[Rfam]
Description
This 242-nucleotide RNA sequence from Nitrosomonas europaea belongs to the Rfam family "Proteobacterial sRNA psRNA2".
RNA sequence: GGAUUACUCCUUUACGCUUUCGCGUUUGGUUGAUAAAGAUUCGCACCUCUAUCAAACCGGGUAAUCCCACCUCUUGGCAAGACCUGCUGUCAGAUCAAAUCUGAACUACUACAUAUGAAGCGUUAACUGAUCAUGGUAAAAAUGUAAGCCCACCGCUAGCAGAUCGUUUCAAUUGGCUGACAGCAGCUCGUCACCUUCAAACAUAUAAAUCUUUAAGAGCGCGCUUAAAGACAAAUCUGUAU
Numbered sequence: 001g002g003a004u005u006a007c008u009c010c011u012u013u014a015c016g017c018u019u020u021c022g023c024g025u026u027u028g029g030u031u032g033a034u035a036a037a038g039a040u041u042c043g044c045a046c047c048u049c050u051a052u053c054a055a056a057c058c059g060g061g062u063a064a065u066c067c068c069a070c071c072u073c074u075u076g077g078c079a080a081g082a083c084c085u086g087c088u089g090u091c092a093g094a095u096c097a098a099a100u101c102u103g104a105a106c107u108a109c110u111a112c113a114u115a116u117g118a119a120g121c122g123u124u125a126a127c128u129g130a131u132c133a134u135g136g137u138a139a140a141a142a143u144g145u146a147a148g149c150c151c152a153c154c155g156c157u158a159g160c161a162g163a164u165c166g167u168u169u170c171a172a173u174u175g176g177c178u179g180a181c182a183g184c185a186g187c188u189c190g191u192c193a194c195c196u197u198c199a200a201a202c203a204u205a206u207a208a209a210u211c212u213u214u215a216a217g218a219g220c221g222c223g224c225u226u227a228a229a230g231a232c233a234a235a236u237c238u239g240u241a242u
Base pairs, nucleotide, nucleotide: 001067002066003065004064005063006062007061009060010059014025015024016023017022028058029057030056031055032053033052034051035050037048038047069240070239075190076189077188081184089106090105091103092102093101094100095099113178210231211230212229213228214227215226216225217224
The literature on the family includes a 2010 paper in FEMS Microbiol Lett by Gvakharia et al., "Computational prediction and transcriptional analysis of sRNAs in Nitrosomonas europaea". The source organism's lineage runs through Bacteria, Betaproteobacteria, Nitrosomonadaceae, Nitrosomonas and Nitrosomonas europaea. The base pairs follow the family's consensus structure. It scores 142 bits against the family's covariance model.